[Rfam]
RNA sequence: UUAGCAACCAAACUUCUCUUCAAGAAAUUUAUCUCAAAACCACCCACAAACCAAUCAAAAUGUCUCCCUGUUCUUGCAACUGCUGCCAAGGCGAGUGCAACUCCUGCUCCUGCGGAAGCUGCAGCGUAAGUUUUU
Numbered sequence: 001u002u003a004g005c006a007a008c009c010a011a012a013c014u015u016c017u018c019u020u021c022a023a024g025a026a027a028u029u030u031a032u033c034u035c036a037a038a039a040c041c042a043c044c045c046a047c048a049a050a051c052c053a054a055u056c057a058a059a060a061u062g063u064c065u066c067c068c069u070g071u072u073c074u075u076g077c078a079a080c081u082g083c084u085g086c087c088a089a090g091g092c093g094a095g096u097g098c099a100a101c102u103c104c105u106g107c108u109c110c111u112g113c114g115g116a117a118g119c120u121g122c123a124g125c126g127u128a129a130g131u132u133u134u135u
Stems, first nucleotide, its partner, number of pairs: 069093004076086003097122003106113002
RNA: A. fumigatus sRNA Afu_254